[Rfam]
Record summary
Rfam assigns this 135-nucleotide sequence from Cerasibacillus terrae to the family "Ribosomal protein L20 leader". Rfam's curators write: This family is a putative r-protein leader autoregulatory structure found in B. subtilis and other low-GC Gram-positive bacteria. It is located in the 5' untranslated regions of mRNAs encoding initiation factor 3 followed by ribosomal proteins L35 and L20 (infC-rpmI-rplT). A Rho-independent transcription terminator structure that is probably involved in regulation is included at the 3' end. The organism belongs to Cerasibacillus, within Bacteria. On this family, see Zengel and Lindahl, Prog Nucleic Acid Res Mol Biol 1994: "Diverse mechanisms for regulating ribosomal protein synthesis in Escherichia coli". The match comes from Rfam's covariance-model search (82 bits).
RNA sequence: UAAGACAAGUAGAAGCACCCGCUUCUCACCUGUUCAACGCGCACAAGCUGUUGGCUGGUUAUUCUCUAUUUCUAUAAUGAAUGUAAUGUUUGGAGAAGUGUGGGUGUAUCUAUGUGCCUACACUUUUUUAUUUUU
Dot-bracket structure: ..........((((((....)))))).(((.....(((((......)).)))....))).......................................((((((((((....)))))))))).............